[Rfam]
RNA sequence: CCUGCGGGACGACCCGUAAGAUGCCAACUCUCCCGGGGACGACCCCG
Numbered sequence: 001c002c003u004g005c006g007g008g009a010c011g012a013c014c015c016g017u018a019a020g021a022u023g024c025c026a027a028c029u030c031u032c033c034c035g036g037g038g039a040c041g042a043c044c045c046c047g
Base pairs, nucleotide, nucleotide: 001020003018004017005016006015007014008013034047035046036045037044038043
A member of the RNA family "Guanidine-II riboswitch aptamer (mini-ykkC)" from Shimwellia blattae, 47 nucleotides long. NCBI's taxonomy places the organism under Bacteria, Pseudomonadati, Enterobacterales, Shimwellia, Shimwellia blattae.